[Rfam]
RNA sequence: UAACCUUAGAUUAGGUAGGGAUACCCGCUAAACUUAAGCAUAUUAAUAAGCGGAGGAAAAGAAACUAAUAGGGAUUGCCCUAGUAACAGCGAGUGAAGCGGCAACAGCUUAAAUUUAAAAUCUAGCUCUUUUAGGGUCUAAGUUAUAAUUUGCAGAGGGCGCUUUAGCGUUAGCAGUAGUCUAAGUUCCUUAGAAUAGGACGUUACAGAGGGUAAGAAUCCUAUACGUAGUCGCUAGCCUUCGCCGUGUAAAGCCCCUUUAAUAAGUUAAGUUGUUUAGGAAUAUAGCUCUAAAUAGGAGGUAAAUUUCUUCUAAAGCUAAAUACUAGCUAGAGACUAAUAGCGCACAAGUAGAGUAAUUAAAAGAUAAAAAGUACUUUAGAAAGAGAGUUAAAUAGCACGUAAAAUUGUUAAAAGGGAAG
Numbered sequence: 001u002a003a004c005c006u007u008a009g010a011u012u013a014g015g016u017a018g019g020g021a022u023a024c025c026c027g028c029u030a031a032a033c034u035u036a037a038g039c040a041u042a043u044u045a046a047u048a049a050g051c052g053g054a055g056g057a058a059a060a061g062a063a064a065c066u067a068a069u070a071g072g073g074a075u076u077g078c079c080c081u082a083g084u085a086a087c088a089g090c091g092a093g094u095g096a097a098g099c100g101g102c103a104a105c106a107g108c109u110u111a112a113a114u115u116u117a118a119a120a121u122c123u124a125g126c127u128c129u130u131u132u133a134g135g136g137u138c139u140a141a142g143u144u145a146u147a148a149u150u151u152g153c154a155g156a157g158g159g160c161g162c163u164u165u166a167g168c169g170u171u172a173g174c175a176g177u178a179g180u181c182u183a184a185g186u187u188c189c190u191u192a193g194a195a196u197a198g199g200a201c202g203u204u205a206c207a208g209a210g211g212g213u214a215a216g217a218a219u220c221c222u223a224u225a226c227g228u229a230g231u232c233g234c235u236a237g238c239c240u241u242c243g244c245c246g247u248g249u250a251a252a253g254c255c256c257c258u259u260u261a262a263u264a265a266g267u268u269a270a271g272u273u274g275u276u277u278a279g280g281a282a283u284a285u286a287g288c289u290c291u292a293a294a295u296a297g298g299a300g301g302u303a304a305a306u307u308u309c310u311u312c313u314a315a316a317g318c319u320a321a322a323u324a325c326u327a328g329c330u331a332g333a334g335a336c337u338a339a340u341a342g343c344g345c346a347c348a349a350g351u352a353g354a355g356u357a358a359u360u361a362a363a364a365g366a367u368a369a370a371a372a373g374u375a376c377u378u379u380a381g382a383a384a385g386a387g388a389g390u391u392a393a394a395u396a397g398c399a400c401g402u403a404a405a406a407u408u409g410u411u412a413a414a415a416g417g418g419a420a421g
Stems, first nucleotide, its partner, number of pairs: 024055001025053005035042002065072002076103004086094002106319004112150004118144002121141001125137003155260002157257003162253004167244003173238001175235003179231002185201001187200004204208001211221002270289006296313005353360002376387004
This 421-nucleotide part of an RNA from Plenodomus lingam belongs to the Rfam family "Eukaryotic large subunit ribosomal RNA". Its family is annotated with structural constituent of ribosome and ribosome in the Gene Ontology. The family is grouped with related families in Rfam's "LSU clan".